[Rfam]
RNA sequence: CCCGCACACCCACCCGUGCACGGCAGGAGCGGGGGACCCACAGGUACGACGCCUGUUCCGGUUCCCGGAACGGCUCGGGGUAAAGCCGUGUGCCCGCACACGGCCGGACAUCUCCAGUCCGCACCCGACAGCUCACCUCGUAGGCGCCGGAGAGGAAUU
Numbered sequence: 001c002c003c004g005c006a007c008a009c010c011c012a013c014c015c016g017u018g019c020a021c022g023g024c025a026g027g028a029g030c031g032g033g034g035g036a037c038c039c040a041c042a043g044g045u046a047c048g049a050c051g052c053c054u055g056u057u058c059c060g061g062u063u064c065c066c067g068g069a070a071c072g073g074c075u076c077g078g079g080g081u082a083a084a085g086c087c088g089u090g091u092g093c094c095c096g097c098a099c100a101c102g103g104c105c106g107g108a109c110a111u112c113u114c115c116a117g118u119c120c121g122c123a124c125c126c127g128a129c130a131g132c133u134c135a136c137c138u139c140g141u142a143g144g145c146g147c148c149g150g151a152g153a154g155g156a157a158u159u
Stems, first nucleotide, its partner, number of pairs: 001027002029141006039077001078126003086103004106120004
RNA: c-di-AMP riboswitch aptamer (ydaO/yuaA leader)
Organism: Streptomyces longwoodensis